Overview:
The record is a 108-nucleotide RNA sequence from Salarias fasciatus, which matches "Vault RNA" in Rfam. Rfam classes the family as a non-coding RNA gene.
RNA sequence: GCACUGGCUUAGCUCAGUGGUUACUUCCUCUGACACUUCAUCCUCUGGAUGAUCCUCAGUUCUUCCCUCAUCAGAGGGAUCAAACCACGGGUGCUGUCCAGUGUCUUU
Numbered sequence: 001g002c003a004c005u006g007g008c009u010u011a012g013c014u015c016a017g018u019g020g021u022u023a024c025u026u027c028c029u030c031u032g033a034c035a036c037u038u039c040a041u042c043c044u045c046u047g048g049a050u051g052a053u054c055c056u057c058a059g060u061u062c063u064u065c066c067c068u069c070a071u072c073a074g075a076g077g078g079a080u081c082a083a084a085c086c087a088c089g090g091g092u093g094c095u096g097u098c099c100a101g102u103g104u105c106u107u108u
Base pairs, nucleotide, nucleotide: 002103003102004101005100006099007098012092013091014090015089017088018087019086020085026079027078028077029076

The family has 73 seed sequences and 2,873 matches in Rfam 15.1.